[Rfam]
RNA sequence: AGGCCUGAAGAGAGAGGCAGAAUCUGAUCCACAGCCUCCAUGGCAGCUAUUGAUCGGCCAUUGCCUCUCUCUUUUUCUCUG
Numbered sequence: 001a002g003g004c005c006u007g008a009a010g011a012g013a014g015a016g017g018c019a020g021a022a023u024c025u026g027a028u029c030c031a032c033a034g035c036c037u038c039c040a041u042g043g044c045a046g047c048u049a050u051u052g053a054u055c056g057g058c059c060a061u062u063g064c065c066u067c068u069c070u071c072u073u074u075u076u077c078u079c080u081g
Base pairs, nucleotide, nucleotide: 008073009072010071011070012069013068014067015066016065017064018063019062020061024057025056026055027054028053029052033048034047035046
Dot-bracket structure: .......(((((((((((((...((((((...(((..........)))...))))))...)))))))))))))........